[Rfam]
Description: This 101-nucleotide sequence from Caenorhabditis briggsae belongs to the Rfam family "mir-36 microRNA precursor family". It is one of the family's seed sequences. Its family is annotated with RISC complex and miRNA-mediated post-transcriptional gene silencing in the Gene Ontology. On this family, see Ohler et al., RNA 2004: "Patterns of flanking sequence conservation and a characteristic upstream motif for microRNA gene identification".
RNA sequence: CACAGAAGGUUGAAUUGGACCUCUGCUGGUUUCGCGGCGGUGAUACUUUGUACUGAUUGAUUAUCACCGGGUGAAAACUGGUAGAGGACCUUGUAGACUAU
Numbered sequence: 001c002a003c004a005g006a007a008g009g010u011u012g013a014a015u016u017g018g019a020c021c022u023c024u025g026c027u028g029g030u031u032u033c034g035c036g037g038c039g040g041u042g043a044u045a046c047u048u049u050g051u052a053c054u055g056a057u058u059g060a061u062u063a064u065c066a067c068c069g070g071g072u073g074a075a076a077a078c079u080g081g082u083a084g085a086g087g088a089c090c091u092u093g094u095a096g097a098c099u100a101u
Base pairs, nucleotide, nucleotide: 017090018089020087021086022085024083025082026081027080028079029078030077031076032075033073034072035071038069040067041066042065043064044063045062